[Rfam]
RNA sequence: GGACUGGCUCUAGCUCAGCGGUUUCUUCGGCAAUUCUAGCACAACCACUUCUGUGGUUCGAGACCCGCGGGCGCUCCCCAGUCCUUUU
Dot-bracket structure: .((((((.....((((.((((....(((((...........................)))))..)))))))).....)))))).....
Vault RNA: an 88-nucleotide RNA sequence from Sciurus vulgaris. A search with the family's covariance model found it, with a score of 79 bits. The family's consensus secondary structure is taken from published work. Rfam's curators write: This family of RNAs are found as part of the enigmatic vault ribonucleoprotein complex.